[Rfam]
c-di-GMP-I riboswitch aptamer: an 80-nucleotide RNA from Paraferrimonas sedimenticola. On this family, see Weinberg et al., Nucleic Acids Res 2007: "Identification of 22 candidate structured RNAs in bacteria using the CMfinder comparative genomics pipeline".
RNA sequence: CCUUCUAUUUGCCAAACCAGUAGUGAUGCUGGGACGGAAAGCCACGGGUCUCAGGGAAAUGAGAUAGCCGGGUUGCGUUG
Numbered sequence: 001c002c003u004u005c006u007a008u009u010u011g012c013c014a015a016a017c018c019a020g021u022a023g024u025g026a027u028g029c030u031g032g033g034a035c036g037g038a039a040a041g042c043c044a045c046g047g048g049u050c051u052c053a054g055g056g057a058a059a060u061g062a063g064a065u066a067g068c069c070g071g072g073u074u075g076c077g078u079u080g
Base pairs, nucleotide, nucleotide: 012037013036017032018031019030020029021028022027040074041073042072043071045070046069047068048065049064050063051062052061053060